[Rfam]
RNA sequence: CUGGGAGAGGCCACGCGCCCCUGGGUCCAGGUGAGGCCACGCGCCCCUGGAUCCGGGUGAGGCCUUGCACCCCU
Numbered sequence: 001c002u003g004g005g006a007g008a009g010g011c012c013a014c015g016c017g018c019c020c021c022u023g024g025g026u027c028c029a030g031g032u033g034a035g036g037c038c039a040c041g042c043g044c045c046c047c048u049g050g051a052u053c054c055g056g057g058u059g060a061g062g063c064c065u066u067g068c069a070c071c072c073c074u
Stems, first nucleotide, its partner, number of pairs: 003072003007068001008065005016059005023054009033045001036042002
Rfam assigns this 74-nucleotide RNA sequence from Eptesicus fuscus to the family "mir-9279 microRNA precursor family". The family's consensus secondary structure was predicted with RNAalifold. The organism belongs to Eptesicus, within Eukaryota. Rfam's curators put it in the seed alignment.